[Rfam]
RNA sequence: GCUUCGGGCGGAGUGCUGUGGCAGGCACUCCAGGAAUGGAAGCGAACAGACCGUAACGUGACGGCCUCCGUCUGCCCGCCGGACGCCGC
Number, nucleotide and partner (000 for none) at each position: 001g043002c042003u041004u040005c039006g000007g000008g000009c000010g031011g030012a029013g028014u027015g026016c025017u024018g000019u000020g000021g000022c000023a000024g017025g016026c015027a014028c013029u012030c011031c010032a000033g000034g000035a000036a000037u000038g000039g005040a004041a003042g002043c001044g000045a000046a000047c000048a000049g000050a000051c000052c000053g000054u000055a000056a000057c000058g000059u000060g000061a000062c088063g087064g086065c085066c000067u083068c082069c081070g080071u000072c000073u000074g000075c000076c000077c000078g000079c000080c070081g069082g068083a067084c000085g065086c064087c063088g062089c000
RNA: Rhodo-rpoB RNA